RNA: Archaeal large subunit ribosomal RNA, nucleotides 598 to 697
RNA sequence: GGCAUGGCAUGAAAGGAAUGAUAAUUCAUUGAAUUUCUUCUGGCAACACUUGAAAUUCUUUGUCUUUGACUAGUGUUGUGUCAUUCGUCUUGAAACACGA
Numbered sequence: 001g002g003c004a005u006g007g008c009a010u011g012a013a014a015g016g017a018a019u020g021a022u023a024a025u026u027c028a029u030u031g032a033a034u035u036u037c038u039u040c041u042g043g044c045a046a047c048a049c050u051u052g053a054a055a056u057u058c059u060u061u062g063u064c065u066u067u068g069a070c071u072a073g074u075g076u077u078g079u080g081u082c083a084u085u086c087g088u089c090u091u092g093a094a095a096c097a098c099g100a
Stems, first nucleotide, its partner, number of pairs: 001082010015071002023066002027062002033057001041048002085100004